[Rfam]
RNA sequence: CGGAGCAAUACCCGAUUUCUUGUUCUAUCAAGAGAGUUGGUAUUGCUCCUUUAUUU
Numbered sequence: 001c002g003g004a005g006c007a008a009u010a011c012c013c014g015a016u017u018u019c020u021u022g023u024u025c026u027a028u029c030a031a032g033a034g035a036g037u038u039g040g041u042a043u044u045g046c047u048c049c050u051u052u053a054u055u056u
Stems, first nucleotide, its partner, number of pairs: 002049011017034006
Rfam assigns this 56-nucleotide RNA from Platanus occidentalis to the family "Plastid-psbA-3 3UTR RNA". The family's consensus secondary structure was predicted with LocARNA. From the family's description: Plastid psbA-3 is a non-coding RNA (ncRNA) present in plastids. It was identified in inverted repeat sequences in the 3 prime untranslate region (3UTR) of photosystem II quinone-binding protein (psbA). It is one of the family's seed sequences.